[Rfam]
RNA sequence: UAACAGCGAUGACUCAAGAGGUUGCCGAACUUACGGGAAAUUCUUGAAGGAGUAUGUCGAGGUCAUGAACCUGGCGACGG
Dot-bracket structure: .............(((.(((....(((......)))....))).))).......((((...((((......)))))))).
The record is an 80-nucleotide sequence from Clostridium niameyense, which matches "S10-Clostridia ribosomal protein leader" in Rfam.
It is annotated as a cis-regulatory leader.
The match comes from Rfam's covariance-model search (38 bits).